SmY spliceosomal RNA: a 79-nucleotide sequence from Ancylostoma caninum. The literature on the family includes a 2007 paper in RNA by MacMorris et al., "A novel family of C. elegans snRNPs contains proteins associated with trans-splicing".
RNA sequence: GAAUCUGAUGGAGCUACACAGGGCCUUCACCAAGACCCUUUGUAGGAAUUUUUGGAAACCUCUGCUCAGGUAGGGGUUA
Numbered sequence: 001g002a003a004u005c006u007g008a009u010g011g012a013g014c015u016a017c018a019c020a021g022g023g024c025c026u027u028c029a030c031c032a033a034g035a036c037c038c039u040u041u042g043u044a045g046g047a048a049u050u051u052u053u054g055g056a057a058a059c060c061u062c063u064g065c066u067c068a069g070g071u072a073g074g075g076g077u078u079a
Base pairs, nucleotide, nucleotide: 021038022037023036025034026033027032057078058077059076060075061074062073063072064071065070